[Rfam]
RNA: UnaL2 LINE 3' element
Organism: Coregonus sp. 'balchen'
RNA sequence: UCGUGGGCAAUAUGUAAGUCGCUCUGGAUAAGAGCGUCUGCUAAAUGACUAAAA
Numbered sequence: 001u002c003g004u005g006g007g008c009a010a011u012a013u014g015u016a017a018g019u020c021g022c023u024c025u026g027g028a029u030a031a032g033a034g035c036g037u038c039u040g041c042u043a044a045a046u047g048a049c050u051a052a053a054a
Base pairs, nucleotide, nucleotide: 013043014041015040016039020036021035022034023033024032025031